[Rfam]
RNA sequence: AGCUGCGUGGUGAGCACAUAGCGAACUAUUCAUUCGCCUUUUACUAAAGAAUACCGUGUGCUUUCCACACUUCAAGCAGCAUACGCCUAUUUUUGGAAGGGAUCCAUUUCCUCAAGGAAAAGGU
Numbered sequence: 001a002g003c004u005g006c007g008u009g010g011u012g013a014g015c016a017c018a019u020a021g022c023g024a025a026c027u028a029u030u031c032a033u034u035c036g037c038c039u040u041u042u043a044c045u046a047a048a049g050a051a052u053a054c055c056g057u058g059u060g061c062u063u064u065c066c067a068c069a070c071u072u073c074a075a076g077c078a079g080c081a082u083a084c085g086c087c088u089a090u091u092u093u094u095g096g097a098a099g100g101g102a103u104c105c106a107u108u109u110c111c112u113c114a115a116g117g118a119a120a121a122g123g124u
Stems, first nucleotide, its partner, number of pairs: 003079004008067003012063007027053005033047002097124001104123002107120003
RNA: U5 spliceosomal RNA